[Rfam]
RNA sequence: ACUCAUACCUUGGAGGGGAAAUAUCAGGUCAUAAAAGUGGUUUUCCCAGGGGGAGGCUCAUCCAUUGCACUUUGGGUAUGCUUCUGAUCCCUAUGAUUUCCCCAAAUGUGGGGAACUCAACUGCAUAAUUUGUGUUAAUGGGGAUUGCCCUUGUGAUUUCCCUG
Numbered sequence: 001a002c003u004c005a006u007a008c009c010u011u012g013g014a015g016g017g018g019a020a021a022u023a024u025c026a027g028g029u030c031a032u033a034a035a036a037g038u039g040g041u042u043u044u045c046c047c048a049g050g051g052g053g054a055g056g057c058u059c060a061u062c063c064a065u066u067g068c069a070c071u072u073u074g075g076g077u078a079u080g081c082u083u084c085u086g087a088u089c090c091c092u093a094u095g096a097u098u099u100c101c102c103c104a105a106a107u108g109u110g111g112g113g114a115a116c117u118c119a120a121c122u123g124c125a126u127a128a129u130u131u132g133u134g135u136u137a138a139u140g141g142g143g144a145u146u147g148c149c150c151u152u153g154u155g156a157u158u159u160c161c162c163u164g
Base pairs, nucleotide, nucleotide: 012124014122015121016047017046018045019044020043021042023041024040025039026038048092049091050090051089053088055085056084059080060079061078062076063075094119095118096117097115098114099113101111102110140163141162142161143160144159148155

U1 spliceosomal RNA: a 164-nucleotide RNA from Pogona vitticeps. From the family's description: U1 is a small nuclear RNA (snRNA) component of the spliceosome (involved in pre-mRNA splicing). Its 5' end forms complementary base pairs with the 5' splice junction, thus defining the 5' donor site of an intron. There are significant differences in sequence and secondary structure between metazoan and yeast U1 snRNAs, the latter being much longer (568 nucleotides as compared to 164 nucleotides in human). Nevertheless, secondary structure predictions suggest that all U1 snRNAs share a 'common core' consisting of helices I, II, the proximal region of III, and IV. This family does not contain the larger yeast sequences. The organism belongs to Pogona, within Eukaryota. The family's RNA type in Rfam is spliceosomal small nuclear RNA.